Nucleotides: 080
Base pairs, nucleotide, nucleotide: 002047003046004045005044006043007042008041021034022033023032024031025030
Number, partner (000 for none) and nucleotide at each position: 001000c002047g003046g004045g005044u006043g007042g008041a009000g010000g011000g012000g013000c014000g015000c016000u017000g018000c019000g020000a021034c022033g023032a024031a025030c026000c027000a028000c029000g030025g031024u032023u033022c034021g035000c036000c037000a038000c039000g040000c041008u042007c043006c044005a045004c046003c047002c048000a049000g050000a051000c052000c053000c054000u055000c056000g057000a058000u059000c060000g061000c062000g063000g064000a065000a066000g067000g068000g069000c070000g071000c072000c073000u074000u075000c076000u077000c078000a079000c080000g
Record summary:
Shown here is an 80-nucleotide sequence from a Micromonosporaceae bacterium, a member of the family "SAH (S-adenosyl-L-homocysteine) riboswitch aptamer". The source organism's lineage runs through Bacteria, Actinomycetota, Actinomycetes, Micromonosporales and Micromonosporaceae. Pairs were carried over by alignment from the consensus structure, which is taken from published work.